[Rfam]
RNA sequence: AUAAUGAUACAUCUAUAAGUUGAAGCCGGCCUAUCUUGAAAAGGGGCGGAGGUGAAAUUCCUAUGU
Dot-bracket structure: ...........(((.(.....).))(((.(((..........))).)))(((.......))))...
Numbered sequence: 001a002u003a004a005u006g007a008u009a010c011a012u013c014u015a016u017a018a019g020u021u022g023a024a025g026c027c028g029g030c031c032u033a034u035c036u037u038g039a040a041a042a043g044g045g046g047c048g049g050a051g052g053u054g055a056a057a058u059u060c061c062u063a064u065g066u
Stems, first nucleotide, its partner, number of pairs: 012063001013025002016022001026049003030045003050062003